Shown here is a 69-nucleotide RNA sequence from Thermococcus kodakarensis, a member of the family "Pab160 RNA". The family's RNA type in Rfam is H/ACA-box small nucleolar RNA. Gene Ontology term of the family: RNA processing. Taxonomically the source falls in Thermococcus kodakarensis (Archaea, Methanobacteriati, Thermococci, Thermococcales). A reference for the family is Liang et al. (2009), "Structure of a functional ribonucleoprotein pseudouridine synthase bound to a substrate RNA", Nat Struct Mol Biol.
[Rfam]
RNA sequence: GCCCCCGGGAAACCGCGGGGGAUGAGCGCCUCGGCGAGCCGUGAUUCCCCUUCGCUCCCCGGGGGCACA
Numbered sequence: 001g002c003c004c005c006c007g008g009g010a011a012a013c014c015g016c017g018g019g020g021g022a023u024g025a026g027c028g029c030c031u032c033g034g035c036g037a038g039c040c041g042u043g044a045u046u047c048c049c050c051u052u053c054g055c056u057c058c059c060c061g062g063g064g065g066c067a068c069a
Stems, first nucleotide, its partner, number of pairs: 001066009017051006026039002028035002